The record is a 340-nucleotide RNA from Lachnoclostridium sp. An196, which matches "Bacterial RNase P class A" in Rfam. The organism belongs to Lachnoclostridium, within Bacteria.
[Rfam]
RNA sequence: CAAGUAGGACAGGCAAUCGCGGCUGAUGUAUAUCAGGUGAGGAAAGUCCGGGCUUCACAGGGCAGGAUGCCGGAUAACGUCCGGUGGAGGUGACUCCAAGGCCAGUGCAACAGAAAUAAACCGCCAGGAUUAUUCCUGGUAAGGGUGGAAAGGCAGUGUAAGAGACUACCGCCCGGCUGGUAACAGACGGGGCACAUGUAAACCCCAUCCGAAGCAAGACCAAGCAGAAGCAUAUGGCGGCCCGUCAGCUUCAGGUAGGUCGCUGGAGCGUGCUGGCAACAGCACGUCUAGAUAGAUGAUUGCUCAACGACAUAACCCGGCUUAUCGUCCUGCUUGCCAU
Numbered sequence: 001c002a003a004g005u006a007g008g009a010c011a012g013g014c015a016a017u018c019g020c021g022g023c024u025g026a027u028g029u030a031u032a033u034c035a036g037g038u039g040a041g042g043a044a045a046g047u048c049c050g051g052g053c054u055u056c057a058c059a060g061g062g063c064a065g066g067a068u069g070c071c072g073g074a075u076a077a078c079g080u081c082c083g084g085u086g087g088a089g090g091u092g093a094c095u096c097c098a099a100g101g102c103c104a105g106u107g108c109a110a111c112a113g114a115a116a117u118a119a120a121c122c123g124c125c126a127g128g129a130u131u132a133u134u135c136c137u138g139g140u141a142a143g144g145g146u147g148g149a150a151a152g153g154c155a156g157u158g159u160a161a162g163a164g165a166c167u168a169c170c171g172c173c174c175g176g177c178u179g180g181u182a183a184c185a186g187a188c189g190g191g192g193c194a195c196a197u198g199u200a201a202a203c204c205c206c207a208u209c210c211g212a213a214g215c216a217a218g219a220c221c222a223a224g225c226a227g228a229a230g231c232a233u234a235u236g237g238c239g240g241c242c243c244g245u246c247a248g249c250u251u252c253a254g255g256u257a258g259g260u261c262g263c264u265g266g267a268g269c270g271u272g273c274u275g276g277c278a279a280c281a282g283c284a285c286g287u288c289u290a291g292a293u294a295g296a297u298g299a300u301u302g303c304u305c306a307a308c309g310a311c312a313u314a315a316c317c318c319g320g321c322u323u324a325u326c327g328u329c330c331u332g333c334u335u336g337c338c339a340u
Stems, first nucleotide, its partner, number of pairs: 001336010011325001012304007020039002023036005044323003048320005053214004060243004065210005070084005085099001086097004100205002105203002107199003121144002123140007152170002155167003171193001172191004177186003218261004227252005236246003268287008
The family's RNA type in Rfam is ribozyme.